RNA sequence: CCCAUUGGCGAAGAUGAACUCAUCUCCUUCUUAAUCGCCGAUCUCGACAUGGAAUACCAGCCCAUCAUCUCUGCUAUCGAUGUGCAAACUGAUCUUGUCUCCACUGAUGAGCUCUUUGGCAUGAUCUCCAACUUCGAUC
Number, nucleotide and partner (000 for none) at each position: 001c000002c000003c000004a138005u137006u136007g135008g134009c000010g000011a000012a000013g000014a000015u000016g000017a000018a000019c000020u000021c000022a000023u000024c000025u000026c000027c000028u000029u000030c000031u000032u000033a000034a000035u000036c000037g000038c000039c000040g000041a000042u000043c000044u000045c000046g000047a000048c000049a000050u000051g000052g000053a000054a000055u000056a000057c000058c000059a000060g000061c000062c000063c000064a000065u000066c000067a000068u000069c000070u000071c000072u000073g000074c000075u000076a000077u000078c000079g000080a000081u000082g000083u000084g000085c000086a000087a000088a108089c000090u106091g105092a000093u103094c000095u000096u000097g000098u000099c000100u000101c000102c000103a093104c000105u091106g090107a000108u088109g000110a000111g000112c000113u000114c000115u000116u000117u000118g000119g000120c000121a000122u000123g000124a000125u000126c000127u000128c000129c000130a000131a000132c000133u000134u008135c007136g006137a005138u004139c000
RNA: Small nucleolar RNA Z247